[Rfam]
RNA sequence: CGGGCAGUAUCUAAAGGAACUGCACCUUAUAUAAAAUCCUUAAACCUGAACUUUAUUUAUUCUGCCUAGAUCCAAAUAGGACAAGGACAGAGGG
Numbered sequence: 001c002g003g004g005c006a007g008u009a010u011c012u013a014a015a016g017g018a019a020c021u022g023c024a025c026c027u028u029a030u031a032u033a034a035a036a037u038c039c040u041u042a043a044a045c046c047u048g049a050a051c052u053u054u055a056u057u058u059a060u061u062c063u064g065c066c067u068a069g070a071u072c073c074a075a076a077u078a079g080g081a082c083a084a085g086g087a088c089a090g091a092g093g094g
Base pairs, nucleotide, nucleotide: 002026003025004023005022006021007020008019010018011017062090063089064088065086066085067084069082071081072080073079
A member of the RNA family "pan motif" from Bacillus oleivorans, 94 nucleotides long. Taxonomically the source falls in Bacillus (Bacteria, Bacillati, Bacillota, Bacilli). The base pairs follow the family's consensus structure, which is taken from published work.